[Rfam]
RNA: MIR2593 microRNA precursor family
Organism: Trifolium medium
RNA sequence: AUAUAAGCAAAAAUUCAUUUUUUUAGAUUCAUUGAAUAACUGAUGUAUCUGGUUCAUAUUAUAAACUAGAUACAUCAGUUAUUCAAUGAAGCUGAAAAAUGAAUCUUUGAUUAUAU
Numbered sequence: 001a002u003a004u005a006a007g008c009a010a011a012a013a014u015u016c017a018u019u020u021u022u023u024u025a026g027a028u029u030c031a032u033u034g035a036a037u038a039a040c041u042g043a044u045g046u047a048u049c050u051g052g053u054u055c056a057u058a059u060u061a062u063a064a065a066c067u068a069g070a071u072a073c074a075u076c077a078g079u080u081a082u083u084c085a086a087u088g089a090a091g092c093u094g095a096a097a098a099a100u101g102a103a104u105c106u107u108u109g110a111u112u113a114u115a116u
Stems, first nucleotide, its partner, number of pairs: 002115005009108003013104001015102003019099008028090018050068004